[Rfam]
RNA: Small nucleolar RNA snR37
Organism: Saccharomyces cerevisiae
RNA sequence: AACAUCAGUAGUGGUUAAUACUAUCUUUAGAUAAUAUUAAUUUCAUUAUACCAUAGAAACCUAAAGAUUAGGUUAUUUUCGUUCUUCAUGUUAUGGAGUGUGAGUGAUGAGGAGCUUGCUCUUUUAAGCUCAUAUUACGUAAUAAGUUAAUACUGGAGCGAGAAUAAUUUAAAUCAUUUCAUCAUAACCCAUAGCUGAAUGAACUUUGACUACUCCUAAACAAAGUAGUAACAAUUUUCAUUUCGUUUCCGGUUUCUUAGAUCGAAUAUUAUUCUGAGGAAAUUCCCUGAUUACAUAUCAGGGAAAGGUUCGCGUUUUUAGAGAAUUGCGUAAUGCGAUUUGAAAGUUUAAAUUCCUAAGCGACUCUUCUUCAUGAUAAGACAGUU
Numbered sequence: 001a002a003c004a005u006c007a008g009u010a011g012u013g014g015u016u017a018a019u020a021c022u023a024u025c026u027u028u029a030g031a032u033a034a035u036a037u038u039a040a041u042u043u044c045a046u047u048a049u050a051c052c053a054u055a056g057a058a059a060c061c062u063a064a065a066g067a068u069u070a071g072g073u074u075a076u077u078u079u080c081g082u083u084c085u086u087c088a089u090g091u092u093a094u095g096g097a098g099u100g101u102g103a104g105u106g107a108u109g110a111g112g113a114g115c116u117u118g119c120u121c122u123u124u125u126a127a128g129c130u131c132a133u134a135u136u137a138c139g140u141a142a143u144a145a146g147u148u149a150a151u152a153c154u155g156g157a158g159c160g161a162g163a164a165u166a167a168u169u170u171a172a173a174u175c176a177u178u179u180c181a182u183c184a185u186a187a188c189c190c191a192u193a194g195c196u197g198a199a200u201g202a203a204c205u206u207u208g209a210c211u212a213c214u215c216c217u218a219a220a221c222a223a224a225g226u227a228g229u230a231a232c233a234a235u236u237u238u239c240a241u242u243u244c245g246u247u248u249c250c251g252g253u254u255u256c257u258u259a260g261a262u263c264g265a266a267u268a269u270u271a272u273u274c275u276g277a278g279g280a281a282a283u284u285c286c287c288u289g290a291u292u293a294c295a296u297a298u299c300a301g302g303g304a305a306a307g308g309u310u311c312g313c314g315u316u317u318u319u320a321g322a323g324a325a326u327u328g329c330g331u332a333a334u335g336c337g338a339u340u341u342g343a344a345a346g347u348u349u350a351a352a353u354u355c356c357u358a359a360g361c362g363a364c365u366c367u368u369c370u371u372c373a374u375g376a377u378a379a380g381a382c383a384g385u386u
Stems, first nucleotide, its partner, number of pairs: 008049006014041007022033004055257007066175004070170016089144007097136009109124006145154003197243007206234003209229006269379005275373007283305009307365003311362003315358001317352006323341007